[Rfam]
tRNA: a 72-nucleotide sequence from Legionella oakridgensis. By type it is a transfer RNA. Pairs were carried over by alignment from the consensus structure, which is taken from published work. The family has 954 seed sequences and 5,335,975 matches in Rfam 15.1.
RNA sequence: AGGCACGUAGCUCAGUGGUAGAGCACCACCUUGACAUGGUGGUGGUCGGUGGUUCGAUCCCACUCGUGCCUA
Numbered sequence: 001a002g003g004c005a006c007g008u009a010g011c012u013c014a015g016u017g018g019u020a021g022a023g024c025a026c027c028a029c030c031u032u033g034a035c036a037u038g039g040u041g042g043u044g045g046u047c048g049g050u051g052g053u054u055c056g057a058u059c060c061c062a063c064u065c066g067u068g069c070c071u072a
Base pairs, nucleotide, nucleotide: 001071002070003069004068005067006066007065010024011023012022013021026042027041028040029039030038048064049063050062051061052060